[Rfam]
RNA: mir-8517 microRNA precursor family
Organism: Plutella xylostella
RNA sequence: UUAGUGGACACUUUAGCUAUUAAACUGUUCUGUCACUCUCUGACAGAGAACAAUUUGUUCUUUGAAAGAGAAGGACAAAACAGUUCAAUAGAAUCAUCAAUAGC
Numbered sequence: 001u002u003a004g005u006g007g008a009c010a011c012u013u014u015a016g017c018u019a020u021u022a023a024a025c026u027g028u029u030c031u032g033u034c035a036c037u038c039u040c041u042g043a044c045a046g047a048g049a050a051c052a053a054u055u056u057g058u059u060c061u062u063u064g065a066a067a068g069a070g071a072a073g074g075a076c077a078a079a080a081c082a083g084u085u086c087a088a089u090a091g092a093a094u095c096a097u098c099a100a101u102a103g104c
Stems, first nucleotide, its partner, number of pairs: 001103003005099002012093002017091005023085006029069003033065003049059004